[Rfam]
RNA: mir-3015 microRNA precursor family
RNA sequence: GUUCUCACAAUGUCUGGUUAAAGUUAACCGACACUUAACCGGACAUUGUGUAAGAACGG
Numbered sequence: 001g002u003u004c005u006c007a008c009a010a011u012g013u014c015u016g017g018u019u020a021a022a023g024u025u026a027a028c029c030g031a032c033a034c035u036u037a038a039c040c041g042g043a044c045a046u047u048g049u050g051u052a053a054g055a056a057c058g059g
Base pairs, nucleotide, nucleotide: 001057002056003055004054005053006050007049008048009047010046011045013043014042015041016040017039018038019037020036021035023032024031025030